Rfam assigns this 112-nucleotide RNA sequence from Paenisporosarcina antarctica to the family "Listeria sRNA rli61". A reference for the family is Toledo-Arana et al. (2009), "The Listeria transcriptional landscape from saprophytism to virulence", Nature.
RNA sequence: UGUGAAAUAAAUCACAUACAAACAUACACCCCUUUGUUUAUACGUGAGCAUUUCUCCCAUCCCCUUUGUGAAAAGAAGCGCCUCUCCAUAAUUGGAGAGGCGCUUCUUUGUU
Numbered sequence: 001u002g003u004g005a006a007a008u009a010a011a012u013c014a015c016a017u018a019c020a021a022a023c024a025u026a027c028a029c030c031c032c033u034u035u036g037u038u039u040a041u042a043c044g045u046g047a048g049c050a051u052u053u054c055u056c057c058c059a060u061c062c063c064c065u066u067u068g069u070g071a072a073a074a075g076a077a078g079c080g081c082c083u084c085u086c087c088a089u090a091a092u093u094g095g096a097g098a099g100g101c102g103c104u105u106c107u108u109u110g111u112u
Stems, first nucleotide, its partner, number of pairs: 002056001004054005013046003017042001020039005073108015